The record is a 96-nucleotide RNA sequence from Nicotiana sylvestris, which matches "MIR6152 microRNA precursor family" in Rfam. The family has 2 seed sequences and 5,807 matches in Rfam 15.1. A search with the family's covariance model found it, with a score of 92 bits.
[Rfam]
RNA sequence: UGGACAGAUUACUGUAUUUGACUGUAUUUACGGCGUGAAACAGGGGAUUACAUUGUUUUUAAACGAAAAGUGUAUCAAUUAGCAUAAUAGACUCCU
Dot-bracket structure: .(((....(((.(((.((.((.((.((.(((..((((((((((.........)))))))...)))....))).)))).)))).))).)))..))).
Numbered sequence: 001u002g003g004a005c006a007g008a009u010u011a012c013u014g015u016a017u018u019u020g021a022c023u024g025u026a027u028u029u030a031c032g033g034c035g036u037g038a039a040a041c042a043g044g045g046g047a048u049u050a051c052a053u054u055g056u057u058u059u060u061a062a063a064c065g066a067a068a069a070g071u072g073u074a075u076c077a078a079u080u081a082g083c084a085u086a087a088u089a090g091a092c093u094c095c096u
Stems, first nucleotide, its partner, number of pairs: 002095003009090003013086003017082002020080002023077002026075002029072003034065003037059007